The record is a 138-nucleotide RNA sequence from Baia soyae, which matches "FMN riboswitch aptamer (RFN element)" in Rfam. Its family is annotated with FMN binding in the Gene Ontology.

RNA sequence: UGGAUCCUUCGGGGCAGGGUGCAAUUCCCGACCGACGGUGAUGGUAGUCUACACUACCUCAGCCCGUGACCCGCUUAUAGCGGUUGACUCGGUGAAACUCCGGGGCCGACAGUAUAGUCUGGAUGGGAGAAGGAUGAU
Numbered sequence: 001u002g003g004a005u006c007c008u009u010c011g012g013g014g015c016a017g018g019g020u021g022c023a024a025u026u027c028c029c030g031a032c033c034g035a036c037g038g039u040g041a042u043g044g045u046a047g048u049c050u051a052c053a054c055u056a057c058c059u060c061a062g063c064c065c066g067u068g069a070c071c072c073g074c075u076u077a078u079a080g081c082g083g084u085u086g087a088c089u090c091g092g093u094g095a096a097a098c099u100c101c102g103g104g105g106c107c108g109a110c111a112g113u114a115u116a117g118u119c120u121g122g123a124u125g126g127g128a129g130a131a132g133g134a135u136g137a138u
Base pairs, nucleotide, nucleotide: 004135005134006133007132008131009130010129017029018028019027031118032117033108034107035067036066037065038064062106063105071083072082088104089103090102091101092100110121111120112119